Rfam assigns this 279-nucleotide RNA sequence from Citrobacter rodentium to the family "Enterobacterial sRNA STnc180". It scores 136 bits against the family's covariance model. Taxonomically the source falls in Citrobacter rodentium (Bacteria, Pseudomonadati, Enterobacterales, Citrobacter). It is annotated as a small RNA.
[Rfam]
RNA sequence: UUUACUGAUACACCACAGCAAUAAAACGUUGAGACUGUUCAACACAGGUAUUAAACAAAAAGUCGGUGUAGCCUAUGAUUACUGCAAAUAUGAAAUACUGGUCGUGGAUGGGGGCGUUCUCACUUUCGCUGCUCUUCUGGGCUGAACUUAUCUGGGUUAUCGCCAGGUAAUAUCCUCGUUCUGUCGGAUGACGGCGCAAACCCCGCUCCGUCUGCUCAGCGAAACAUCGUCAGUUGCUUCUGCUCUUACCAGACCUCGCUACGGCGAGGUUUUGUUUUU
Numbered sequence: 001u002u003u004a005c006u007g008a009u010a011c012a013c014c015a016c017a018g019c020a021a022u023a024a025a026a027c028g029u030u031g032a033g034a035c036u037g038u039u040c041a042a043c044a045c046a047g048g049u050a051u052u053a054a055a056c057a058a059a060a061a062g063u064c065g066g067u068g069u070a071g072c073c074u075a076u077g078a079u080u081a082c083u084g085c086a087a088a089u090a091u092g093a094a095a096u097a098c099u100g101g102u103c104g105u106g107g108a109u110g111g112g113g114g115c116g117u118u119c120u121c122a123c124u125u126u127c128g129c130u131g132c133u134c135u136u137c138u139g140g141g142c143u144g145a146a147c148u149u150a151u152c153u154g155g156g157u158u159a160u161c162g163c164c165a166g167g168u169a170a171u172a173u174c175c176u177c178g179u180u181c182u183g184u185c186g187g188a189u190g191a192c193g194g195c196g197c198a199a200a201c202c203c204c205g206c207u208c209c210g211u212c213u214g215c216u217c218a219g220c221g222a223a224a225c226a227u228c229g230u231c232a233g234u235u236g237c238u239u240c241u242g243c244u245c246u247u248a249c250c251a252g253a254c255c256u257c258g259c260u261a262c263g264g265c266g267a268g269g270u271u272u273u274g275u276u277u278u279u
Base pairs, nucleotide, nucleotide: 010069011068012067013066014065029042030041031040032039033038101142102141103140106132108130111127112126113125114124143159144158145157147155148154174269175268176267177266178265179264180263
Pairs were carried over by alignment from the consensus structure, which was predicted with RNAalifold.